[Rfam]
RNA: tRNA
RNA sequence: GGACCAUUAGCUCAGUUGGUAGAGCACGCGACUCUUAAUCGUGUUGUCCAGGGUUCGACCCCCUGAUGGUCCA
Numbered sequence: 001g002g003a004c005c006a007u008u009a010g011c012u013c014a015g016u017u018g019g020u021a022g023a024g025c026a027c028g029c030g031a032c033u034c035u036u037a038a039u040c041g042u043g044u045u046g047u048c049c050a051g052g053g054u055u056c057g058a059c060c061c062c063c064u065g066a067u068g069g070u071c072c073a
Stems, first nucleotide, its partner, number of pairs: 001072007010025004027043005049065005